Source information: This 256-nucleotide RNA from Thermodesulforhabdus norvegica belongs to the Rfam family "Bacterial large signal recognition particle RNA". The base pairs follow the family's consensus structure, which is taken from published work. Rfam classes the family as a non-coding RNA gene. The source organism's lineage runs through Bacteria, Pseudomonadati, Thermodesulfobacteriota, Syntrophobacterales and Thermodesulforhabdus.

[Rfam]
RNA sequence: UUGUGCUAGGCGGGGAGUUAGCGGUGCCCUGUACCCGAAAUCCGCUCAGCGGGGCCGAACUCCCUCCCGAGGGCAUGGGCCUGAAGAUAAGGCCACUGCUCUCACGGCACACCGGACACCACGUAACGGGCAGGUGUGAACCCCGUCAGGUCCGGAAGGAAGCAGCGGUAAGCACUGGCGUCCGUGUCGUGGUUCACUCUGGUGGAGCCGGGAGAUGCAACCUUAUCGGAUGCCCUGCUCGACGGAGGGUGCACAA
Numbered sequence: 001u002u003g004u005g006c007u008a009g010g011c012g013g014g015g016a017g018u019u020a021g022c023g024g025u026g027c028c029c030u031g032u033a034c035c036c037g038a039a040a041u042c043c044g045c046u047c048a049g050c051g052g053g054g055c056c057g058a059a060c061u062c063c064c065u066c067c068c069g070a071g072g073g074c075a076u077g078g079g080c081c082u083g084a085a086g087a088u089a090a091g092g093c094c095a096c097u098g099c100u101c102u103c104a105c106g107g108c109a110c111a112c113c114g115g116a117c118a119c120c121a122c123g124u125a126a127c128g129g130g131c132a133g134g135u136g137u138g139a140a141c142c143c144c145g146u147c148a149g150g151u152c153c154g155g156a157a158g159g160a161a162g163c164a165g166c167g168g169u170a171a172g173c174a175c176u177g178g179c180g181u182c183c184g185u186g187u188c189g190u191g192g193u194u195c196a197c198u199c200u201g202g203u204g205g206a207g208c209c210g211g212g213a214g215a216u217g218c219a220a221c222c223u224u225a226u227c228g229g230a231u232g233c234c235c236u237g238c239u240c241g242a243c244g245g246a247g248g249g250u251g252c253a254c255a256a
Stems, first nucleotide, its partner, number of pairs: 001256006009056003012030004017025003034053004062249006071240005077235004081229004088225002098221001101217001105211001106209003110204007118193006124186002127184005133176005143168004151160003